Overview:
This 128-nucleotide RNA sequence from Rhinopithecus roxellana belongs to the Rfam family "Small nucleolar RNA SNORA71". Lineage of the source: Eukaryota > Opisthokonta > Euteleostomi > Catarrhini > Rhinopithecus. Rfam 15.1 lists 1,805 matches to the family in 606 species. The members of this family belong to the H/ACA class of snoRNAs which bind a number of proteins (including dyskerin, Gar1p and Nop10p) to form snoRNP complexes. This class of snoRNAs are thought to guide the sites of modification of uridines to pseudouridines by forming direct base pairing interactions with substrate RNAs. It scores 73 bits against the family's covariance model. Rfam classes the family as an H/ACA-box small nucleolar RNA. Its family is annotated with nucleolus and RNA processing in the Gene Ontology.
RNA sequence: UCUUGUAUCCAAAAAUGACCAUGGGUUGCCUGUGCCCCGAUCAUUAAUAGUGCAGGGGUAGGAGUGCUGAAAGACAUUUUCCCUGCAUUGGCCCAGCCUUUCCUUUCAAACCCUGGAGCUUUCCCAUG
Numbered sequence: 001u002c003u004u005g006u007a008u009c010c011a012a013a014a015a016u017g018a019c020c021a022u023g024g025g026u027u028g029c030c031u032g033u034g035c036c037c038c039g040a041u042c043a044u045u046a047a048u049a050g051u052g053c054a055g056g057g058g059u060a061g062g063a064g065u066g067c068u069g070a071a072a073g074a075c076a077u078u079u080u081c082c083c084u085g086c087a088u089u090g091g092c093c094c095a096g097c098c099u100u101u102c103c104u105u106u107c108a109a110a111c112c113c114u115g116g117a118g119c120u121u122u123c124c125c126a127u128g
Stems, first nucleotide, its partner, number of pairs: 001057008014045005020039001023037004066125001069123005085111001088108001090103002
Dot-bracket structure: ((((((((.....(((((.(..((((.......)))).).)))))....))))))))........(..(((((...........(..(.((..........))....)..).......))))).)...